[Rfam]
RNA sequence: AUAAAAAGGGGAGUGCAGAGGAGGCACCCCUCGCCGAUAAAGGAGGGGGCUCAGGCUGCUCUGCAGCCGCCGAAGGGAAC
Numbered sequence: 001a002u003a004a005a006a007a008g009g010g011g012a013g014u015g016c017a018g019a020g021g022a023g024g025c026a027c028c029c030c031u032c033g034c035c036g037a038u039a040a041a042g043g044a045g046g047g048g049g050c051u052c053a054g055g056c057u058g059c060u061c062u063g064c065a066g067c068c069g070c071c072g073a074a075g076g077g078a079a080c
Base pairs, nucleotide, nucleotide: 015034016033018032019031020030021029054068055067056066057065058064
RNA: Clostridiales-2 RNA